[Rfam]
RNA sequence: AACUGAUGCACAUGGCGGUCUCCUCCCAGUGCCGCCGCAACAGCUGUUCCCCUCUGGAGGUUUUUGACCUUCACACUUCAUGGGCCUCGGUUCUUCCGACGGCCCAUUUUU
Numbered sequence: 001a002a003c004u005g006a007u008g009c010a011c012a013u014g015g016c017g018g019u020c021u022c023c024u025c026c027c028a029g030u031g032c033c034g035c036c037g038c039a040a041c042a043g044c045u046g047u048u049c050c051c052c053u054c055u056g057g058a059g060g061u062u063u064u065u066g067a068c069c070u071u072c073a074c075a076c077u078u079c080a081u082g083g084g085c086c087u088c089g090g091u092u093c094u095u096c097c098g099a100c101g102g103c104c105c106a107u108u109u110u111u
Stems, first nucleotide, its partner, number of pairs: 001045001003043003007039003015035004055073007081106006087099004
This 111-nucleotide sequence from Rhizobium johnstonii belongs to the Rfam family "Alphaproteobacterial ar15".
Rfam 15.1 lists 316 matches to the family in 177 species.
Gene Ontology term of the family: protein binding.
For this family Rfam cites "Independent activity of the homologous small regulatory RNAs AbcR1 and AbcR2 in the legume symbiont Sinorhizobium meliloti" (Torres-Quesada et al., PLoS One, 2013).
NCBI's taxonomy places the organism under Bacteria, Pseudomonadati, Pseudomonadota, Rhizobiaceae, Rhizobium johnstonii.
It is annotated as a small RNA.
The family is grouped with related families in Rfam's "suhB sRNA clan".